RNA sequence: GGAGGGGUGGCCGAGUGGUUGAAGGCGCUCGCCUGGAAAGCGGGUAUACGGCCAAAACCGUAUCGUGGGUUCGAAUCCCAUCCCCUCCG
Numbered sequence: 001g002g003a004g005g006g007g008u009g010g011c012c013g014a015g016u017g018g019u020u021g022a023a024g025g026c027g028c029u030c031g032c033c034u035g036g037a038a039a040g041c042g043g044g045u046a047u048a049c050g051g052c053c054a055a056a057a058c059c060g061u062a063u064c065g066u067g068g069g070u071u072c073g074a075a076u077c078c079c080a081u082c083c084c085c086u087c088c089g
Stems, first nucleotide, its partner, number of pairs: 001088007010026003028044005065081005
tRNA: an 89-nucleotide RNA sequence from Nitrospirillum viridazoti. Pairs were carried over by alignment from the consensus structure, which is taken from published work. The match comes from Rfam's covariance-model search (59 bits). Rfam links the family to the GO term triplet codon-amino acid adaptor activity.